[Rfam]
RNA sequence: GGGAAUACGCUUAGGAUUCUCAUAGCGCGGUCGUGUUAAUAGCUUUUCUUUUGGCCGAGAAGAGCGGUUAGGGAAUC
Numbered sequence: 001g002g003g004a005a006u007a008c009g010c011u012u013a014g015g016a017u018u019c020u021c022a023u024a025g026c027g028c029g030g031u032c033g034u035g036u037u038a039a040u041a042g043c044u045u046u047u048c049u050u051u052u053g054g055c056c057g058a059g060a061a062g063a064g065c066g067g068u069u070a071g072g073g074a075a076u077c
Base pairs, nucleotide, nucleotide: 001021002020003019004018005017006016036071037070038069039068040067042065043064044063045062046061047060048059049058050057

About this RNA
L13-Bacteroidia ribosomal protein leader: a 77-nucleotide sequence. It is annotated as a cis-regulatory leader.